[Rfam]
RNA: Acido-Lenti-1 RNA
Organism: Lentisphaera araneosa
Nucleotides: 046
Base pairs, nucleotide, nucleotide: 001020002019004017006015007014008013033045034044036042037041
Number, partner (000 for none) and nucleotide at each position: 001020c002019c003000c004017a005000a006015g007014g008013c009000u010000g011000g012000c013008g014007c015006c016000c017004u018000u019002g020001g021000c022000u023000a024000a025000g026000u027000u028000a029000u030000g031000c032000c033045g034044u035000a036042c037041c038000u039000u040000c041037g042036g043000c044034a045033c046000u